[Rfam]
RNA sequence: GAAGCGUCUACCCCGCGCCGGGCGACCGGGCAAGACGGGGACCUUCGCCCAGCAAUGAGCGAAACA
Numbered sequence: 001g002a003a004g005c006g007u008c009u010a011c012c013c014c015g016c017g018c019c020g021g022g023c024g025a026c027c028g029g030g031c032a033a034g035a036c037g038g039g040g041a042c043c044u045u046c047g048c049c050c051a052g053c054a055a056u057g058a059g060c061g062a063a064a065c066a
Stems, first nucleotide, its partner, number of pairs: 011040005018029004044063005050057002

Annotation
Transposase-2 RNA: a 66-nucleotide sequence from Nonomuraea cypriaca. Rfam classes the family as a small RNA. The match comes from Rfam's covariance-model search (45 bits).